[Rfam]
RNA sequence: CCCUUAUCUUUUAAAAGUUUCAAGUUGGUCCCUUAUCUUUUUUUUAGGUUUCAAGUUGGUCCAUUCCAUCAAUUUUUUUACUGUUACCGUUAAUUCUGGACGUGUCACAUGUUCAAGUGUGCCACGUGUCCAAAUUAGUUUGCCACGUGUCCAAAUUUAACGGAAAUAGUUAAAAAAAUGACGGAAGGGACCAACUUGAAACCUAAAAUAAAUAUAAGGGACCAACUUGAAACUUUUAAAAGAUAAGGGA
Numbered sequence: 001c002c003c004u005u006a007u008c009u010u011u012u013a014a015a016a017g018u019u020u021c022a023a024g025u026u027g028g029u030c031c032c033u034u035a036u037c038u039u040u041u042u043u044u045u046a047g048g049u050u051u052c053a054a055g056u057u058g059g060u061c062c063a064u065u066c067c068a069u070c071a072a073u074u075u076u077u078u079u080a081c082u083g084u085u086a087c088c089g090u091u092a093a094u095u096c097u098g099g100a101c102g103u104g105u106c107a108c109a110u111g112u113u114c115a116a117g118u119g120u121g122c123c124a125c126g127u128g129u130c131c132a133a134a135u136u137a138g139u140u141u142g143c144c145a146c147g148u149g150u151c152c153a154a155a156u157u158u159a160a161c162g163g164a165a166a167u168a169g170u171u172a173a174a175a176a177a178a179u180g181a182c183g184g185a186a187g188g189g190a191c192c193a194a195c196u197u198g199a200a201a202c203c204u205a206a207a208a209u210a211a212a213u214a215u216a217a218g219g220g221a222c223c224a225a226c227u228u229g230a231a232a233c234u235u236u237u238a239a240a241a242g243a244u245a246a247g248g249g250a
Stems, first nucleotide, its partner, number of pairs: 002248007023227003027223003031219006038212003042208002045205003